[Rfam]
Notes
Rfam assigns this 51-nucleotide sequence from Elioraea sp. Yellowstone to the family "terC RNA". By type it is a cis-regulatory element. The family has 129 seed sequences and 1,112 matches in Rfam 15.1.
RNA sequence: GGCGGGGUCCGGGCCCCUCUGGCGCAGCCUGCGCGAUGUCGGACCCCUUCG
Numbered sequence: 001g002g003c004g005g006g007g008u009c010c011g012g013g014c015c016c017c018u019c020u021g022g023c024g025c026a027g028c029c030u031g032c033g034c035g036a037u038g039u040c041g042g043a044c045c046c047c048u049u050c051g
Base pairs, nucleotide, nucleotide: 006045007044008043009042010041011040012039022034023033024032025031026030